[Rfam]
RNA sequence: AAAGUUCUUCGGGGAAGGUGAAAUUCCUUACCGGCGGUAUAGUCCGCGACCCGUAUUCUUUAAUUCUUUAAGGGUAUGGCUGAUUUGGUGAAAUUCCAAAACCGACAGUAAAGUCUGGAUGGGAGAAGAAAUGC
Numbered sequence: 001a002a003a004g005u006u007c008u009u010c011g012g013g014g015a016a017g018g019u020g021a022a023a024u025u026c027c028u029u030a031c032c033g034g035c036g037g038u039a040u041a042g043u044c045c046g047c048g049a050c051c052c053g054u055a056u057u058c059u060u061u062a063a064u065u066c067u068u069u070a071a072g073g074g075u076a077u078g079g080c081u082g083a084u085u086u087g088g089u090g091a092a093a094u095u096c097c098a099a100a101a102c103c104g105a106c107a108g109u110a111a112a113g114u115c116u117g118g119a120u121g122g123g124a125g126a127a128g129a130a131a132u133g134c
Stems, first nucleotide, its partner, number of pairs: 003132001005130006016028003030114002032104002034047004042102002051079006084100005106117003